[Rfam]
RNA sequence: ACUCGACACCUUUCACAACGGAUCGUCCGGCACGUACCUGCCGGUGAAGGGACUGGUUC
Numbered sequence: 001a002c003u004c005g006a007c008a009c010c011u012u013u014c015a016c017a018a019c020g021g022a023u024c025g026u027c028c029g030g031c032a033c034g035u036a037c038c039u040g041c042c043g044g045u046g047a048a049g050g051g052a053c054u055g056g057u058u059c
Base pairs, nucleotide, nucleotide: 009051010050011049012048013047014046015045027044028043029042030041031040032039
A member of the RNA family "msiK RNA" from Cellulomonas sp. PhB150, 59 nucleotides long. By type it is a cis-regulatory element. NCBI's taxonomy places the organism under Bacteria, Bacillati, Actinomycetota, Micrococcales, Cellulomonas.